[Rfam]
RNA: ffh sRNA
RNA sequence: GUGUCCCGGGAUCGCCCUCCGUCAGCGCGUUGCGCCCACGGGGGCGCGCAUC
Numbered sequence: 001g002u003g004u005c006c007c008g009g010g011a012u013c014g015c016c017c018u019c020c021g022u023c024a025g026c027g028c029g030u031u032g033c034g035c036c037c038a039c040g041g042g043g044g045c046g047c048g049c050a051u052c
Stems, first nucleotide, its partner, number of pairs: 016044007025035004